[Rfam]
RNA sequence: UCAAAAUUGAAUGUCAUACCGUAGACCGUAGGGGUGCUUAGCACUUAAUUUCCUACCGAGGUAAGCAAUAGAUACAGGAAGUUAUAACUGUGUUUGUAUGCCCUCAUGUCUACAUGGGGGCUUUUUAUAUGCUUCU
Numbered sequence: 001u002c003a004a005a006a007u008u009g010a011a012u013g014u015c016a017u018a019c020c021g022u023a024g025a026c027c028g029u030a031g032g033g034g035u036g037c038u039u040a041g042c043a044c045u046u047a048a049u050u051u052c053c054u055a056c057c058g059a060g061g062u063a064a065g066c067a068a069u070a071g072a073u074a075c076a077g078g079a080a081g082u083u084a085u086a087a088c089u090g091u092g093u094u095u096g097u098a099u100g101c102c103c104u105c106a107u108g109u110c111u112a113c114a115u116g117g118g119g120g121c122u123u124u125u126u127a128u129a130u131g132c133u134u135c136u
Stems, first nucleotide, its partner, number of pairs: 028056006034044003100121009